[Rfam]
Rfam assigns this 52-nucleotide sequence from Solanum lycopersicum to the family "MIR1886 microRNA precursor family". Lineage of the source: Eukaryota > Viridiplantae > Pentapetalae > asterids > Solanum subgen. Lycopersicon. The family's consensus secondary structure was predicted with RNAalifold. Gene Ontology terms of the family: miRNA-mediated post-transcriptional gene silencing and RISC complex.
RNA sequence: UGAGAUAGAAUCAACGUUUGGAUAUGUGAUUUUACGUUGAUUUUGUCUCAUG
Numbered sequence: 001u002g003a004g005a006u007a008g009a010a011u012c013a014a015c016g017u018u019u020g021g022a023u024a025u026g027u028g029a030u031u032u033u034a035c036g037u038u039g040a041u042u043u044u045g046u047c048u049c050a051u052g
Base pairs, nucleotide, nucleotide: 001050002049003048004047005046006045007044008043009042010041011040012039013038014037015036016035017034018029019028020027
Dot-bracket structure: ((((((((((((((((((((......)))....)))))))))))))))))..